The record is a 230-nucleotide part of an RNA from Methylomirabilis oxygeniifera, which matches "Bacterial large subunit ribosomal RNA" in Rfam. Clan: LSU clan.

RNA sequence: GAGUUACUUGUACGCAGCAAGGUUAAGCCGCGAGGCGGAGCCGUAGCGAAAGCGAGUCCGAAUAGGGCGAUUGAGUUGCGUGCAGUAGACCCGAAGCCAGGUGAGCUACCCCUGGCCAGAGUGAAGUGCCGGUAACACGGCAUGGAAGCUCGAACUCAUCACGGUUGAAAACGUGUGGGAUGAGCUGGGGGUAGGAGUGAAAGGCCAAUCAAACCUGGAAAUAGCUGGUU
Numbered sequence: 001g002a003g004u005u006a007c008u009u010g011u012a013c014g015c016a017g018c019a020a021g022g023u024u025a026a027g028c029c030g031c032g033a034g035g036c037g038g039a040g041c042c043g044u045a046g047c048g049a050a051a052g053c054g055a056g057u058c059c060g061a062a063u064a065g066g067g068c069g070a071u072u073g074a075g076u077u078g079c080g081u082g083c084a085g086u087a088g089a090c091c092c093g094a095a096g097c098c099a100g101g102u103g104a105g106c107u108a109c110c111c112c113u114g115g116c117c118a119g120a121g122u123g124a125a126g127u128g129c130c131g132g133u134a135a136c137a138c139g140g141c142a143u144g145g146a147a148g149c150u151c152g153a154a155c156u157c158a159u160c161a162c163g164g165u166u167g168a169a170a171a172c173g174u175g176u177g178g179g180a181u182g183a184g185c186u187g188g189g190g191g192u193a194g195g196a197g198u199g200a201a202a203g204g205c206c207a208a209u210c211a212a213a214c215c216u217g218g219a220a221a222u223a224g225c226u227g228g229u230u
Stems, first nucleotide, its partner, number of pairs: 005087003009084010021042004027036003046053002056068004090228002093225001097218006106194011117182001119151004126143006155179003160175004197205002